[Rfam]
RNA sequence: GCCGUGUGCGGUGGCGCGUGCCUGUAAUCCAAGUCACUGGGAGGCUGAGGUUGGUGGAUCGAGUGAGCUGAGGAUCUCUGAGCUGCAGCAUGCUAUGUCGAACGGGUGUCCGUGCUAAGUUCGGUAUCGAUAUGGUGUUCUUGGGGGAGCCCGAGACCACCAGGUUGUCUAAGGAGGGGUGUACCGGCCCAGGUCGGAAACGAAGCAGGUCAAAUCCCCCGUACUGUCCAGUAGUGGGAUAGUGCCUGUGAGUAGAUGCUGCAGUGCAGCCUUGGCAAGACAUCGAAACCCAAUCUUUU
Number, nucleotide and partner (000 for none) at each position: 001g045002c044003c043004g023005u000006g021007u020008g019009c018010g017011g000012u000013g000014g000015c000016g000017c010018g009019u008020g007021c006022c000023u004024g000025u000026a000027a000028u042029c041030c040031a000032a000033g000034u000035c000036a000037c000038u000039g000040g030041g029042a028043g003044g002045c001046u000047g297048a296049g295050g294051u293052u292053g291054g290055u000056g000057g000058a000059u286060c285061g284062a283063g000064u000065g000066a000067g276068c275069u274070g273071a272072g271073g270074a000075u000076c000077u000078c269079u268080g267081a000082g265083c264084u263085g262086c261087a260088g259089c258090a257091u000092g000093c255094u254095a253096u252097g000098u250099c000100g000101a000102a249103c248104g247105g246106g245107u244108g243109u242110c238111c237112g000113u236114g235115c234116u233117a232118a000119g229120u000121u000122c226123g225124g224125u223126a222127u221128c167129g166130a165131u164132a000133u162134g161135g160136u159137g158138u000139u156140c155141u154142u153143g152144g151145g150146g000147g000148a000149g000150c145151c144152c143153g142154a141155g140156a139157c000158c137159a136160c135161c134162a133163g000164g131165u130166u129167g128168u174169c173170u000171a000172a000173g169174g168175a000176g219177g218178g217179g216180u000181g000182u000183a000184c000185c000186g211187g210188c209189c208190c000191a000192g000193g000194u203195c202196g201197g000198a000199a000200a000201c196202g195203a194204a000205g000206c000207a000208g189209g188210u187211c186212a000213a000214a000215u000216c179217c178218c177219c176220c000221g127222u126223a125224c124225u123226g122227u000228c000229c119230a000231g000232u117233a116234g115235u114236g113237g111238g110239a000240u000241a000242g109243u108244g107245c106246c105247u104248g103249u102250g098251a000252g096253u095254a094255g093256a000257u090258g089259c088260u087261g086262c085263a084264g083265u082266g000267c080268a079269g078270c073271c072272u071273u070274g069275g068276c067277a000278a000279g000280a000281c000282a000283u062284c061285g060286a059287a000288a000289c000290c054291c053292a052293a051294u050295c049296u048297u047298u000299u000
The family of this 299-nucleotide sequence from Salmo trutta is "Metazoan signal recognition particle RNA". The family's RNA type in Rfam is non-coding RNA gene. The signal recognition particle (SRP) is a universally conserved ribonucleoprotein. It is involved in the co-translational targeting of proteins to membranes. The eukaryotic SRP consists of a 300-nucleotide 7S RNA and six proteins: SRPs 72, 68, 54, 19, 14, and 9. A reference for the family is Regalia et al. (2002), "Prediction of signal recognition particle RNA genes", Nucleic Acids Res.